[Rfam]
Nucleotides: 075
Base pairs, nucleotide, nucleotide: 015025016024017023031071033069038065039064043060044059047056049054
Number, partner (000 for none) and nucleotide at each position: 001000c002000u003000u004000g005000a006000c007000c008000g009000a010000a011000c012000c013000c014000a015025g016024c017023c018000a019000c020000a021000a022000c023017g024016g025015c026000c027000g028000g029000u030000c031071c032000c033069c034000g035000u036000c037000c038065c039064g040000a041000u042000c043060c044059u045000g046000a047056c048000c049054a050000u051000a052000c053000g054049u055000a056047g057000c058000g059044a060043g061000c062000a063000g064039c065038g066000c067000c068000u069033g070000c071031g072000c073000c074000u075000c
Overview:
The family of this 75-nucleotide RNA sequence from Streptomyces tubercidicus is "ASpks TB sRNA". The family's RNA type in Rfam is antisense RNA. NCBI's taxonomy places the organism under Bacteria, Actinomycetes, Kitasatosporales, Streptomycetaceae, Streptomyces.